Description: Shown here is a 135-nucleotide RNA from Cavia porcellus, a member of the family "Small nucleolar RNA SNORA61". The organism belongs to Cavia, within Eukaryota.
[Rfam]
RNA sequence: ACCCUCCAGUUCCCUUUCCCAUCGGAUCUAAACACUGGUCUUGGUGGUCGUUAAAGGAGGGAAAGGAGGAAUGCUGAAGCUGGCCCCAACGCCUUAUAGUCUGGUAUACUGCAGAUGGGCUAGUUUCAAACAGGG
Numbered sequence: 001a002c003c004c005u006c007c008a009g010u011u012c013c014c015u016u017u018c019c020c021a022u023c024g025g026a027u028c029u030a031a032a033c034a035c036u037g038g039u040c041u042u043g044g045u046g047g048u049c050g051u052u053a054a055a056g057g058a059g060g061g062a063a064a065g066g067a068g069g070a071a072u073g074c075u076g077a078a079g080c081u082g083g084c085c086c087c088a089a090c091g092c093c094u095u096a097u098a099g100u101c102u103g104g105u106a107u108a109c110u111g112c113a114g115a116u117g118g119g120c121u122a123g124u125u126u127c128a129a130a131c132a133g134g135g
Stems, first nucleotide, its partner, number of pairs: 003060005019047005025040004080123007095113001097111001

From the family's description: ACA61 is a member of the H/ACA class of snoRNA that guide the sites of modification of uridines to pseudouridines. Pairs were carried over by alignment from the consensus structure, which was predicted with PFOLD. Its family is annotated with nucleolus and RNA processing in the Gene Ontology.